[Rfam]
This 85-nucleotide RNA sequence from Salvia splendens belongs to the Rfam family "Small nucleolar RNA Z159/U59". Its family is annotated with nucleolus and RNA processing in the Gene Ontology. A reference for the family is Chen et al. (2003), "The high diversity of snoRNAs in plants: identification and comparative study of 120 snoRNA genes from Oryza sativa", Nucleic Acids Res. The family is grouped with related families in Rfam's "SNORD59 clan". The family's RNA type in Rfam is C/D-box small nucleolar RNA. It scores 65 bits against the family's covariance model. The family has 10 seed sequences and 1,401 matches in Rfam 15.1. The organism belongs to core Calosphace, within Eukaryota.
RNA sequence: GCCUCUGAUGAUGAUUACAACAUAACUUUCGUUCUUCUGAGAAUUUUUCGUGCGGAAGAUUUAUGGAGACCUGAACUGAAGAGUG
Numbered sequence: 001g002c003c004u005c006u007g008a009u010g011a012u013g014a015u016u017a018c019a020a021c022a023u024a025a026c027u028u029u030c031g032u033u034c035u036u037c038u039g040a041g042a043a044u045u046u047u048u049c050g051u052g053c054g055g056a057a058g059a060u061u062u063a064u065g066g067a068g069a070c071c072u073g074a075a076c077u078g079a080a081g082a083g084u085g
Base pairs, nucleotide, nucleotide: 003083004082005081006080